RNA sequence: UGGCUACAAAAUAACUUAUUCUGUAGGCACUUUGAGUUAUGAUAACUACUAUGUAAAUUUACGAGAUUAUAGUAACUCUUUACUAAGUGGUUUACUAUAACGUUAUGGUAAAUAUCCCCAUGUGUUAUAGUAACCCAACUAUCGUAAAUUAGUAUAUAAAAUUAUCGUAAAUGGAGGUGGCUACAGAAUAACUUAUUCUGUAGCCG
Numbered sequence: 001u002g003g004c005u006a007c008a009a010a011a012u013a014a015c016u017u018a019u020u021c022u023g024u025a026g027g028c029a030c031u032u033u034g035a036g037u038u039a040u041g042a043u044a045a046c047u048a049c050u051a052u053g054u055a056a057a058u059u060u061a062c063g064a065g066a067u068u069a070u071a072g073u074a075a076c077u078c079u080u081u082a083c084u085a086a087g088u089g090g091u092u093u094a095c096u097a098u099a100a101c102g103u104u105a106u107g108g109u110a111a112a113u114a115u116c117c118c119c120a121u122g123u124g125u126u127a128u129a130g131u132a133a134c135c136c137a138a139c140u141a142u143c144g145u146a147a148a149u150u151a152g153u154a155u156a157u158a159a160a161a162u163u164a165u166c167g168u169a170a171a172u173g174g175a176g177g178u179g180g181c182u183a184c185a186g187a188a189u190a191a192c193u194u195a196u197u198c199u200g201u202a203g204c205c206g
Stems, first nucleotide, its partner, number of pairs: 001206008010197005016191011028179006037170009047160001050156003061153002067151001079148005087142006093132011107117002
Rfam assigns this 206-nucleotide sequence from Miscanthus lutarioriparius to the family "MIR6217 microRNA precursor family". The organism belongs to Miscanthus, within Eukaryota. Gene Ontology terms of the family: RISC complex and miRNA-mediated post-transcriptional gene silencing. A search with the family's covariance model found it, with a score of 146 bits.